[Rfam]
RNA sequence: GUUGAGCCCGACCAGACACAACAUUCUGCAGCAAUGUUGUGCGACCUGCAGUGUCGGUCGGCCAGCAGCUUAGC
Number, nucleotide and partner (000 for none) at each position: 001g074002u073003u072004g071005a070006g069007c068008c000009c060010g059011a058012c057013c056014a000015g000016a000017c000018a000019c000020a038021a037022c036023a035024u034025u033026c000027u000028g000029c000030a000031g000032c000033a025034a024035u023036g022037u021038u020039g000040u000041g000042c000043g055044a054045c053046c000047u000048g000049c000050a000051g000052u000053g045054u044055c043056g013057g012058u011059c010060g009061g000062c000063c000064a000065g000066c000067a000068g007069c006070u005071u004072a003073g002074c001
bZIP non canonical Hac1/Xbp1 intron: a 74-nucleotide sequence from Diplodia seriata. The organism belongs to Diplodia, within Eukaryota. The family has 112 seed sequences and 1,325 matches in Rfam 15.1. A search with the family's covariance model found it, with a score of 50 bits. Pairs were carried over by alignment from the consensus structure, which was predicted with RNAfold. bZIP intron RNA is a non-canonical intron that was first reported in HAC1 gene in yeast and XBP1 gene in Metazoa. A reference for the family is Hooks and Griffiths-Jones (2011), "Conserved RNA structures in the non-canonical Hac1/Xbp1 intron", RNA Biol.